[Rfam]
RNA sequence: GCUUACAGUGAGUUUUGAUGGCUUGCUCUCAGCUUCUGAAAGACUCUGCUGUGCAAAUCCAUGCAAAGCUCUCUGUUUCU
Numbered sequence: 001g002c003u004u005a006c007a008g009u010g011a012g013u014u015u016u017g018a019u020g021g022c023u024u025g026c027u028c029u030c031a032g033c034u035u036c037u038g039a040a041a042g043a044c045u046c047u048g049c050u051g052u053g054c055a056a057a058u059c060c061a062u063g064c065a066a067a068g069c070u071c072u073c074u075g076u077u078u079c080u
Base pairs, nucleotide, nucleotide: 005076006075007074008073010071011070012069013068014067015066016065017064020060021059023056024055025054026053028051031050032049033048